[Rfam]
RNA sequence: AGCCUUUGUGUUGCCCAUUCACUUUUGGAAACUAGCAAUGAGGUGUCAAAAAAAGGCAUACAUAAAUGUCUUGUAGUCUUUUUCUACCCUUAAAUUUGGUAUAUUUGGGGUAGGACCUGCAUAAGCAACAGUU
Number, nucleotide and partner (000 for none) at each position: 001a000002g057003c056004c055005u054006u053007u052008g000009u048010g047011u000012u045013g044014c043015c042016c040017a039018u038019u037020c000021a000022c035023u034024u000025u000026u000027g000028g000029a000030a000031a000032c000033u000034a023035g022036c000037a019038a018039u017040g016041a000042g015043g014044u013045g012046u000047c010048a009049a000050a000051a000052a007053a006054a005055g004056g003057c002058a000059u000060a000061c000062a000063u000064a000065a000066a000067u000068g126069u125070c000071u123072u121073g120074u119075a118076g117077u000078c000079u000080u000081u000082u115083u114084c113085u112086a111087c110088c108089c107090u000091u000092a000093a102094a000095u000096u000097u000098g000099g000100u000101a000102u093103a000104u000105u000106u000107g089108g088109g000110g087111u086112a085113g084114g083115a082116c000117c076118u075119g074120c073121a072122u000123a071124a000125g069126c068127a000128a000129c000130a000131g000132u000133u000
RNA: Small nucleolar RNA SNORA13